A member of the RNA family "BsrG" from Metabacillus litoralis, 250 nucleotides long.
Its family is annotated with autolysis and toxin activity in the Gene Ontology.
Rfam classes the family as a small RNA.
NCBI's taxonomy places the organism under Bacteria, Bacillati, Bacillota, Bacilli, Metabacillus.
It scores 102 bits against the family's covariance model.

[Rfam]
RNA sequence: CAAUAGAAUCGGUUUUCUCAAGGGUGUCGGCACACUCCUAGUAAAGGGGGUGAGGCCGUUUGACGACUUUUGAAUCUUUGAUGUUUGCGGUUGCGUUUGCUAGUCUAAUCGUAGCGAUCCUAUCAUUUGACUCAAAAAAAUAAUCCACCCUUGAGUUAGCGGCUCAGGUGGAUUAUUUUUUUUCUACCUUAUUGGCCGACUCCUUUAUAGGAACCGACUAUUGUAGACCGUUGGUGUUACAGCACCAGCG
Numbered sequence: 001c002a003a004u005a006g007a008a009u010c011g012g013u014u015u016u017c018u019c020a021a022g023g024g025u026g027u028c029g030g031c032a033c034a035c036u037c038c039u040a041g042u043a044a045a046g047g048g049g050g051u052g053a054g055g056c057c058g059u060u061u062g063a064c065g066a067c068u069u070u071u072g073a074a075u076c077u078u079u080g081a082u083g084u085u086u087g088c089g090g091u092u093g094c095g096u097u098u099g100c101u102a103g104u105c106u107a108a109u110c111g112u113a114g115c116g117a118u119c120c121u122a123u124c125a126u127u128u129g130a131c132u133c134a135a136a137a138a139a140a141u142a143a144u145c146c147a148c149c150c151u152u153g154a155g156u157u158a159g160c161g162g163c164u165c166a167g168g169u170g171g172a173u174u175a176u177u178u179u180u181u182u183u184c185u186a187c188c189u190u191a192u193u194g195g196c197c198g199a200c201u202c203c204u205u206u207a208u209a210g211g212a213a214c215c216g217a218c219u220a221u222u223g224u225a226g227a228c229c230g231u232u233g234g235u236g237u238u239a240c241a242g243c244a245c246c247a248g249c250g
Stems, first nucleotide, its partner, number of pairs: 001223005009199006017155008026145001027143001033052007062124002065121001075090002098116004166179002201212003229250009